[Rfam]
RNA sequence: ACGUUGCGAUGAAGUGAGAGGUUACCGACACACCCGGCCCCUUUGCCAUGGCGGUGCGGUCGGAAAAUUUUCACGGAGUAUGUCCGAUCCAAAAUUGGGCGAUAA
Numbered sequence: 001a002c003g004u005u006g007c008g009a010u011g012a013a014g015u016g017a018g019a020g021g022u023u024a025c026c027g028a029c030a031c032a033c034c035c036g037g038c039c040c041c042u043u044u045g046c047c048a049u050g051g052c053g054g055u056g057c058g059g060u061c062g063g064a065a066a067a068u069u070u071u072c073a074c075g076g077a078g079u080a081u082g083u084c085c086g087a088u089c090c091a092a093a094a095u096u097g098g099g100c101g102a103u104a105a
Base pairs, nucleotide, nucleotide: 014074015073016072018071019070020069021068025063026062027061028060029059081104082103083102084101088099089098090097
A member of the RNA family "S10-Clostridia ribosomal protein leader" from Paenibacillus popilliae, 105 nucleotides long. For this family Rfam cites "Discovery of 20 novel ribosomal leader candidates in bacteria and archaea" (Eckert and Weinberg, BMC Microbiol, 2020). Rfam classes the family as a cis-regulatory leader. The source organism's lineage runs through Bacteria, Bacillati, Paenibacillaceae, Paenibacillus and Paenibacillus popilliae. A search with the family's covariance model found it, with a score of 36 bits.